Description
The record is an 86-nucleotide RNA sequence from Leptobrachium leishanense, which matches "mir-277 microRNA precursor family" in Rfam. For this family Rfam cites "MicroRNAs of Bombyx mori identified by Solexa sequencing" (Liu et al., BMC Genomics, 2010). Its family is annotated with miRNA-mediated post-transcriptional gene silencing and RISC complex in the Gene Ontology.
RNA sequence: AUAUAUAUAGAUCUCAGACCAGAUAUGCCCACACAUAUAUAUAUAUACAUAUGUGUGGGCAUUAUCUGGUCUGAGAUCUAUAUAUA
Numbered sequence: 001a002u003a004u005a006u007a008u009a010g011a012u013c014u015c016a017g018a019c020c021a022g023a024u025a026u027g028c029c030c031a032c033a034c035a036u037a038u039a040u041a042u043a044u045a046u047a048c049a050u051a052u053g054u055g056u057g058g059g060c061a062u063u064a065u066c067u068g069g070u071c072u073g074a075g076a077u078c079u080a081u082a083u084a085u086a
Stems, first nucleotide, its partner, number of pairs: 008080004015073009025062001027060009